[Rfam]
RNA sequence: GCCUCCUAUCCUUCAUUCCACCGGAGUCUGUGUGUCACCAAUCAGAUUUCAGUGGUGUGAAGUGUAAGAGGCA
Dot-bracket structure: ..........((((((..(((.((((.(((............))).)))).)))..))))))...........
The record is a 73-nucleotide RNA from Scleropages formosus, which matches "mir-205 microRNA precursor family" in Rfam.
The match comes from Rfam's covariance-model search (80 bits).
The family's consensus secondary structure was predicted with RNAalifold.
The literature on the family includes a 2003 paper in Science by Lim et al., "Vertebrate microRNA genes".